[Rfam]
RNA: Bacterial RNase P class A
Organism: Corynebacterium bovis
RNA sequence: CGAGAGGGCCGGGUGAUCGCGGCCGCCGGAACCGGUCCCGCACGGGACGAGGCCGGGGGUCGAGGAAAGUCCGGACUCCACAGGGCACGGUGGUUGCUAACGGCAACCCGGGGCGACCCGCGGGACAGUGCCACAGAAAACAGACCGCCCGGGACCGGUUCGUCCGGCCACCGGGUAAGGGUGAAAAGGUGCGGUAAGAGCGCACCAGUGCGCCGGGUGACCGGUGCAGCUGGGUAAACCCCACCGGGAGCAAGGUCAAGUGCGGACACCGGGCGUCGCAGACGCCGGGUGCCCGUGUGUCCCGUCGGCUGCCCGUCGGUGAAGGGACAGGUGGACCGCUCGAGGCGCCCAGCGAUGGUGCGUCCAGAUGGAUGAUCACCCCCCGCCCGGCCCCGCGCCGGGUGGCGGACAGAAUCCGGCUCACAGGCCCUCUCGACAC
Numbered sequence: 001c002g003a004g005a006g007g008g009c010c011g012g013g014u015g016a017u018c019g020c021g022g023c024c025g026c027c028g029g030a031a032c033c034g035g036u037c038c039c040g041c042a043c044g045g046g047a048c049g050a051g052g053c054c055g056g057g058g059g060u061c062g063a064g065g066a067a068a069g070u071c072c073g074g075a076c077u078c079c080a081c082a083g084g085g086c087a088c089g090g091u092g093g094u095u096g097c098u099a100a101c102g103g104c105a106a107c108c109c110g111g112g113g114c115g116a117c118c119c120g121c122g123g124g125a126c127a128g129u130g131c132c133a134c135a136g137a138a139a140a141c142a143g144a145c146c147g148c149c150c151g152g153g154a155c156c157g158g159u160u161c162g163u164c165c166g167g168c169c170a171c172c173g174g175g176u177a178a179g180g181g182u183g184a185a186a187a188g189g190u191g192c193g194g195u196a197a198g199a200g201c202g203c204a205c206c207a208g209u210g211c212g213c214c215g216g217g218u219g220a221c222c223g224g225u226g227c228a229g230c231u232g233g234g235u236a237a238a239c240c241c242c243a244c245c246g247g248g249a250g251c252a253a254g255g256u257c258a259a260g261u262g263c264g265g266a267c268a269c270c271g272g273g274c275g276u277c278g279c280a281g282a283c284g285c286c287g288g289g290u291g292c293c294c295g296u297g298u299g300u301c302c303c304g305u306c307g308g309c310u311g312c313c314c315g316u317c318g319g320u321g322a323a324g325g326g327a328c329a330g331g332u333g334g335a336c337c338g339c340u341c342g343a344g345g346c347g348c349c350c351a352g353c354g355a356u357g358g359u360g361c362g363u364c365c366a367g368a369u370g371g372a373u374g375a376u377c378a379c380c381c382c383c384c385g386c387c388c389g390g391c392c393c394c395g396c397g398c399c400g401g402g403u404g405g406c407g408g409a410c411a412g413a414a415u416c417c418g419g420c421u422c423a424c425a426g427g428c429c430c431u432c433u434c435g436a437c438a439c
Stems, first nucleotide, its partner, number of pairs: 001435010011424001012380007020062005026056003068421002071419005076250004083314004088246005093107005108122001109120004123241002128239002130235003145180002147176006153169001155167004188206006208230001209228008254337004264328001267325001305319005344364005349358003